[Rfam]
RNA sequence: AUGUGAAAUAUCCCUGUCCUGGGGUGUGAAAUAUCCCAGGGCUGGGGUGUGAAAUAUCCCUGUGCUGGGAUGUGAAAUAUCCC
Numbered sequence: 001a002u003g004u005g006a007a008a009u010a011u012c013c014c015u016g017u018c019c020u021g022g023g024g025u026g027u028g029a030a031a032u033a034u035c036c037c038a039g040g041g042c043u044g045g046g047g048u049g050u051g052a053a054a055u056a057u058c059c060c061u062g063u064g065c066u067g068g069g070a071u072g073u074g075a076a077a078u079a080u081c082c083c
Base pairs, nucleotide, nucleotide: 008027009026010025011024012023013022014021031050032049033048034047035046036045037044038043054073055072056071057070058069059068060067

The family of this 83-nucleotide RNA from Falcunculus frontatus is "Gut-1 RNA". The match comes from Rfam's covariance-model search (50 bits). The family has 38 seed sequences and 51 matches in Rfam 15.1. By type it is a small RNA.